[Rfam]
RNA sequence: GUAAGCCCCGUGUGGUUGGGUGGUGGUCCCACCCGUAAGCGUGCCCAAAGGGCACGGCCACCCAACUAAACCCUCCCGAAAGGGAGGGCGCACGGGGUAGGAGGU
Numbered sequence: 001g002u003a004a005g006c007c008c009c010g011u012g013u014g015g016u017u018g019g020g021u022g023g024u025g026g027u028c029c030c031a032c033c034c035g036u037a038a039g040c041g042u043g044c045c046c047a048a049a050g051g052g053c054a055c056g057g058c059c060a061c062c063c064a065a066c067u068a069a070a071c072c073c074u075c076c077c078g079a080a081a082g083g084g085a086g087g088g089c090g091c092a093c094g095g096g097g098u099a100g101g102a103g104g105u
Stems, first nucleotide, its partner, number of pairs: 005098009016065009041055005071088007

Shown here is a 105-nucleotide RNA sequence, a member of the family "DUF1874 RNA".